[Rfam]
Nucleotides: 173
Base pairs, nucleotide, nucleotide: 005169006168007167008166009165010164011160012159013097015155016154020149021148022147025145026144027143028142029141030140031139032138039115040114041113042112043111045075046074047073049071055066056065057064058063082106083105084104085103088100089099090098117133118132
Number, partner (000 for none) and nucleotide at each position: 001000g002000c003000a004000g005169u006168a007167u008166c009165u010164c011160g012159u013097u014000a015155g016154g017000c018000g019000a020149g021148g022147c023000u024000c025145c026144u027143a028142u029141a030140c031139a032138a033000a034000c035000a036000u037000a038000g039115g040114u041113u042112g043111c044000u045075g046074a047073u048000c049071u050000g051000a052000c053000g054000a055066c056065g057064u058063c059000g060000a061000g062000a063058g064057a065056c066055g067000c068000c069000c070000a071049a072000a073047a074046u075045c076000a077000g078000g079000a080000c081000a082106g083105g084104a085103u086000a087000u088100a089099u090098c091000g092000a093000g094000u095000c096000a097013a098090g099089g100088u101000g102000u103085a104084u105083c106082c107000c108000c109000a110000u111043g112042u113041a114040a115039c116000u117133u118132c119000a120000u121000g122000c123000u124000a125000u126000u127000u128000u129000c130000a131000g132118g133117a134000u135000a136000c137000g138032u139031u140030g141029u142028a143027u144026a145025g146000u147022g148021c149020u150000a151000a152000a153000a154016c155015u156000g157000a158000u159012a160011c161000g162000u163000u164010g165009a166008g167007a168006u169005a170000u171000c172000u173000u